Notes
6A RNA: a 52-nucleotide RNA. The base pairs follow the family's consensus structure, which is taken from published work. By type it is a small RNA.
RNA sequence: AGACUUGGUCGUAGAGCCACGACCAACUUAAUCAAAAAAACGCUCACUGAGA
Numbered sequence: 001a002g003a004c005u006u007g008g009u010c011g012u013a014g015a016g017c018c019a020c021g022a023c024c025a026a027c028u029u030a031a032u033c034a035a036a037a038a039a040a041c042g043c044u045c046a047c048u049g050a051g052a
Stems, first nucleotide, its partner, number of pairs: 006025006014045004